RNA sequence: CUGCGUUAUGAUGUAUAAUUUACCAUGCUAAUUCUGAUUUAUUAUGAAAGAAAAAAAUUCUCAUUUAUUACUGAACGCAGU
Numbered sequence: 001c002u003g004c005g006u007u008a009u010g011a012u013g014u015a016u017a018a019u020u021u022a023c024c025a026u027g028c029u030a031a032u033u034c035u036g037a038u039u040u041a042u043u044a045u046g047a048a049a050g051a052a053a054a055a056a057a058u059u060c061u062c063a064u065u066u067a068u069u070a071c072u073g074a075a076c077g078c079a080g081u
Base pairs, nucleotide, nucleotide: 001080002079003078004077005076006075007074

Rfam assigns this 81-nucleotide RNA sequence from Funneliformis geosporum to the family "Small nucleolar RNA snoR53Y". Its Rfam clan is "snoR53 clan". The family's RNA type in Rfam is C/D-box small nucleolar RNA. Lineage of the source: Eukaryota > Fungi > Glomeromycota > Glomeromycetes > Funneliformis. Rfam links the family to the GO terms RNA processing and nucleolus.